[Rfam]
RNA sequence: UAUUACGUUGGUGCAAAAGUAAUUGCCAGUUUUGCCAUUGAAAGUAAUGGUAAAACUCGCAAUUACUUUUGCACCGACCUAAUA
Numbered sequence: 001u002a003u004u005a006c007g008u009u010g011g012u013g014c015a016a017a018a019g020u021a022a023u024u025g026c027c028a029g030u031u032u033u034g035c036c037a038u039u040g041a042a043a044g045u046a047a048u049g050g051u052a053a054a055a056c057u058c059g060c061a062a063u064u065a066c067u068u069u070u071g072c073a074c075c076g077a078c079c080u081a082a083u084a
Base pairs, nucleotide, nucleotide: 001084002083003082004081005080007078008077009076010075011074012073013072014071015070016069017068018067019066020065021064022063023062024061025060026059028057029056030055031054032053033052034051035050036049037048038047039046040045
Dot-bracket structure: (((((.((((((((((((((((((((.(((((((((((((....))))))))))))).)))))))))))))))))))).)))))
The family of this 84-nucleotide RNA sequence is "mir-548 microRNA precursor family". It is one of the family's seed sequences. A reference for the family is Witten et al. (2010), "Ultra-high throughput sequencing-based small RNA discovery and discrete statistical biomarker analysis in a collection of cervical tumours and matched controls", BMC Biol. Pairs were carried over by alignment from the consensus structure, which was predicted with WAR.